[Rfam]
RNA sequence: GGGUCCGACCGGAAUUGACAGGAUGGAGACCGUUGUGUAAGCAUGCAGCGCGUUGUGAGUAUGGCGCUUAAAUAUCAACUUUCAACUUUUUAAAUGGCGAAAAUAACUACGCCUUAGCUGCCUAAUUUAGAAUUAGUUUAGCUUUUGUCCCGUUUAGGUGCUGUUCUGUAGCUUAAACAACCGGGGCAUCGAAUUUCAGAACUGGUUGGUUUAUUGCUGCGAUAAGCCAAUAAGAAACAGCAGCUACGGAAGAAGGCUAAGGCAAGCAACCGGCCUGUCCCUUCCCGACAAUUAAACGUUUGCUAAGCAUGUAGAAAGCGCAAACAGUACCAUGACUGGACGAGAGUUCGAAUCUCUCCGGAUCCACAG
Numbered sequence: 001g002g003g004u005c006c007g008a009c010c011g012g013a014a015u016u017g018a019c020a021g022g023a024u025g026g027a028g029a030c031c032g033u034u035g036u037g038u039a040a041g042c043a044u045g046c047a048g049c050g051c052g053u054u055g056u057g058a059g060u061a062u063g064g065c066g067c068u069u070a071a072a073u074a075u076c077a078a079c080u081u082u083c084a085a086c087u088u089u090u091u092a093a094a095u096g097g098c099g100a101a102a103a104u105a106a107c108u109a110c111g112c113c114u115u116a117g118c119u120g121c122c123u124a125a126u127u128u129a130g131a132a133u134u135a136g137u138u139u140a141g142c143u144u145u146u147g148u149c150c151c152g153u154u155u156a157g158g159u160g161c162u163g164u165u166c167u168g169u170a171g172c173u174u175a176a177a178c179a180a181c182c183g184g185g186g187c188a189u190c191g192a193a194u195u196u197c198a199g200a201a202c203u204g205g206u207u208g209g210u211u212u213a214u215u216g217c218u219g220c221g222a223u224a225a226g227c228c229a230a231u232a233a234g235a236a237a238c239a240g241c242a243g244c245u246a247c248g249g250a251a252g253a254a255g256g257c258u259a260a261g262g263c264a265a266g267c268a269a270c271c272g273g274c275c276u277g278u279c280c281c282u283u284c285c286c287g288a289c290a291a292u293u294a295a296a297c298g299u300u301u302g303c304u305a306a307g308c309a310u311g312u313a314g315a316a317a318g319c320g321c322a323a324a325c326a327g328u329a330c331c332a333u334g335a336c337u338g339g340a341c342g343a344g345a346g347u348u349c350g351a352a353u354c355u356c357u358c359c360g361g362a363u364c365c366a367c368a369g
Base pairs, nucleotide, nucleotide: 001365002364003363004362005361006360007359019338020337021336023333024332025331026330033323034322035321036320037319038318042311043310044309045308046307047068048067049066050065051064054084055083057081058080059079060078113141114140116138117137118136119135120134146188147187148186149185150184151183152178153177154176155175157173158172159171163202164201165200166199167198168197205231206230207229208228209227210226211225212224213223216244217243218242219241220240248286249285251283252282255279256278257277261275262274263273268300342358343357344356345355346354
RNA: transfer-messenger RNA